RNA sequence: AGAAGUUGCCAGGUCUAAGAAGCCUGAUUAAAAUCUCUAGAUAGUAAGAGAGAACCUCAUAAGGGUUCAUUUUCCAUCUCGAAUCUAUUCGCAAGUUUUGAGAUUAGCUACCUCAGAAUUUAGUGAACGUUGAUAACGUUAUAUGUCUGGAAAACAUACUAAAUAAUCUCCU
Dot-bracket structure: .........((((.........))))..............((((...(((((((((.......)))))..[[[[[[))))....))))(((((((.((((((.........)))))).))).))))((((.....))))..((((..]]]]]].))))..............
RNA: RAGATH-14 RNA